mir-551 microRNA precursor family: a 72-nucleotide RNA from Aquarana catesbeiana.
The match comes from Rfam's covariance-model search (72 bits).
Rfam links the family to the GO terms miRNA-mediated post-transcriptional gene silencing and RISC complex.
Pairs were carried over by alignment from the consensus structure, which was predicted with RNAalifold.
A reference for the family is Murchison et al. (2008), "Conservation of small RNA pathways in platypus", Genome Res.
NCBI's taxonomy places the organism under Eukaryota, Vertebrata, Anura, Neobatrachia, Aquarana.
[Rfam]
RNA sequence: UGACCUUGGAAGCCAAGAGUGGGUUGGGCCUGGAACACGACUUAGGCGACCCAUACUUGGUUUCAAGGGUCA
Numbered sequence: 001u002g003a004c005c006u007u008g009g010a011a012g013c014c015a016a017g018a019g020u021g022g023g024u025u026g027g028g029c030c031u032g033g034a035a036c037a038c039g040a041c042u043u044a045g046g047c048g049a050c051c052c053a054u055a056c057u058u059g060g061u062u063u064c065a066a067g068g069g070u071c072a
Stems, first nucleotide, its partner, number of pairs: 002071006009064006016057002021052004028047004